[Rfam]
RNA: mir-196 microRNA precursor family
Organism: Grantiella picta
RNA sequence: UCUGUGGAUUAGGUAGUUUCAUGUUGUUGGGGUUCUUCCUUCCAAACGCAAGGACAUCAAACUACCUGAUUUACUCC
Dot-bracket structure: ...((((((((((((((((..((((.(((.(...............).))).))))..))))))))))))))))...